[Rfam]
RNA sequence: GAGGCAUUCCUAUGGAGCAGGACUUGCUUCAGUGGGGCUUUGGUGCUCUCUGAGUCUGCCCCUUGAGGGUAUCACU
Numbered sequence: 001g002a003g004g005c006a007u008u009c010c011u012a013u014g015g016a017g018c019a020g021g022a023c024u025u026g027c028u029u030c031a032g033u034g035g036g037g038c039u040u041u042g043g044u045g046c047u048c049u050c051u052g053a054g055u056c057u058g059c060c061c062c063u064u065g066a067g068g069g070u071a072u073c074a075c076u
Stems, first nucleotide, its partner, number of pairs: 001075001003073002006070002009067001011065002014062002017059003021056003029053004034048003037044002
RNA: mir-9229 microRNA precursor family
Organism: Myotis brandtii